[Rfam]
This 72-nucleotide RNA sequence from Sporolactobacillus shoreae belongs to the Rfam family "tRNA".
RNA sequence: UGGCCCAUAGCCAAGCGGUAAGGCAACGGUUUUUGGUGCCGUCAUGCGCUGGUUCGAAUCCAGCUGGGCCAA
Numbered sequence: 001u002g003g004c005c006c007a008u009a010g011c012c013a014a015g016c017g018g019u020a021a022g023g024c025a026a027c028g029g030u031u032u033u034u035g036g037u038g039c040c041g042u043c044a045u046g047c048g049c050u051g052g053u054u055c056g057a058a059u060c061c062a063g064c065u066g067g068g069c070c071a072a
Stems, first nucleotide, its partner, number of pairs: 001071007010024003026042005048064005
The base pairs follow the family's consensus structure, which is taken from published work.